[Rfam]
RNA: mir-290 microRNA precursor family
RNA sequence: GCAAUACUCAAACUAUGGAGACACUUUUUAUUCCAGGGAAGAAGUGUCACCAAGUUUUGAGAAUUGC
Numbered sequence: 001g002c003a004a005u006a007c008u009c010a011a012a013c014u015a016u017g018g019a020g021a022c023a024c025u026u027u028u029u030a031u032u033c034c035a036g037g038g039a040a041g042a043a044g045u046g047u048c049a050c051c052a053a054g055u056u057u058u059g060a061g062a063a064u065u066g067c
Stems, first nucleotide, its partner, number of pairs: 004064002007061006016052003020048006026041003